[Rfam]
RNA: c-di-AMP riboswitch aptamer (ydaO/yuaA leader)
RNA sequence: CACCGCAUCGUGCCCAGGACGAUCGUGGCAGGGACGGGGGAACCAUCUCCGGACGGCGAACCGGCGGAGCUCGUAGGAGUUCCGAAGGGGCGGCGUCCUCGGGGUGAAGCCGGGCAGAACCCCCAUGUCUGCUCGGCCGGGUGAGCAUCUCCCACCCGAACCCGACAGCUCACCUCGUAGGCGUUACAGGAGAAGAA
Numbered sequence: 001c002a003c004c005g006c007a008u009c010g011u012g013c014c015c016a017g018g019a020c021g022a023u024c025g026u027g028g029c030a031g032g033g034a035c036g037g038g039g040g041a042a043c044c045a046u047c048u049c050c051g052g053a054c055g056g057c058g059a060a061c062c063g064g065c066g067g068a069g070c071u072c073g074u075a076g077g078a079g080u081u082c083c084g085a086a087g088g089g090g091c092g093g094c095g096u097c098c099u100c101g102g103g104g105u106g107a108a109g110c111c112g113g114g115c116a117g118a119a120c121c122c123c124c125a126u127g128u129c130u131g132c133u134c135g136g137c138c139g140g141g142u143g144a145g146c147a148u149c150u151c152c153c154a155c156c157c158g159a160a161c162c163c164g165a166c167a168g169c170u171c172a173c174c175u176c177g178u179a180g181g182c183g184u185u186a187c188a189g190g191a192g193a194a195g196a197a
Stems, first nucleotide, its partner, number of pairs: 001183001003181002006031001034178006044101001102163003110136009139157004